A member of the RNA family "Enterovirus 5' cloverleaf cis-acting replication element" from Enterovirus alphacoxsackie, 90 nucleotides long. The family's RNA type in Rfam is cis-regulatory element. Rfam describes the family as follows. This family represents a cis-regulatory element found at the 5' end of Enterovirus genomes. Lineage of the source: Viruses > Orthornavirae > Picornaviridae > Enterovirus alphacoxsackie > Enterovirus A. For this family Rfam cites "5' cloverleaf in poliovirus RNA is a cis-acting replication element required for negative-strand synthesis" (Barton et al., EMBO J, 2001).

Nucleotides: 090
Stems, first nucleotide, its partner, number of pairs: 002087007010034001011032007035045003046079002050077004057070004
Number, partner (000 for none) and nucleotide at each position: 001000u002087u003086a004085a005084a006083a007082c008081a009000g010034c011032u012031g013030u014029g015028g016027g017026u018000u019000g020000u021000c022000a023000c024000c025000c026017a027016c028015c029014c030013a031012c032011a033000g034010g035045g036044u037043c038000c039000a040000c041000u042000g043037g044036g045035c046079g047078c048000u049000a050077g051076u052075a053074c054000a055000c056000u057070g058069g059068u060067a061000u062000c063000u064000c065000g066000g067060u068059a069058c070057c071000u072000u073000u074053g075052u076051a077050c078047g079046c080000c081008u082007g083006u084005u085004u086003u087002a088000u089000a090000c